[Rfam]
RNA sequence: UUAUAAAUAAAUACUGUACCGCAGACAGUAGGUGCGUUAGCAUAACGUAUACAACCUACCGAGGUCUUAAGAUAAAUGGACGGAUCGUAUAGUCACUUUGCCUGCGGAGAAGAAUUAGCAAAGUGACUUUUUGUUUUACAAA
Number, nucleotide and partner (000 for none) at each position: 001u000002u000003a000004u000005a000006a000007a000008u000009a000010a000011a000012u000013a000014c000015u000016g000017u000018a000019c000020c000021g000022c000023a000024g000025a000026c000027a000028g059029u058030a057031g056032g055033u054034g041035c040036g000037u000038u000039a000040g035041c034042a000043u000044a000045a000046c000047g000048u000049a000050u000051a000052c000053a000054a033055c032056c031057u030058a029059c028060c000061g000062a000063g000064g000065u000066c000067u000068u000069a000070a000071g000072a000073u000074a000075a000076a000077u000078g000079g000080a000081c000082g000083g000084a000085u000086c000087g000088u000089a000090u000091a000092g127093u126094c125095a124096c123097u122098u121099u120100g119101c118102c000103u000104g000105c000106g000107g000108a000109g000110a000111a000112g000113a000114a000115u000116u000117a000118g101119c100120a099121a098122a097123g096124u095125g094126a093127c092128u000129u000130u000131u000132u000133g000134u000135u000136u000137u000138a000139c000140a000141a000142a000

Ribosomal protein L10 leader: a 142-nucleotide RNA sequence from Epulopiscium sp. Nele67-Bin005. A search with the family's covariance model found it, with a score of 74 bits. Rfam describes the family as follows. This family is a putative r-protein leader autoregulatory structure found in B. subtilis and other low-GC Gram-positive bacteria. By type it is a cis-regulatory leader.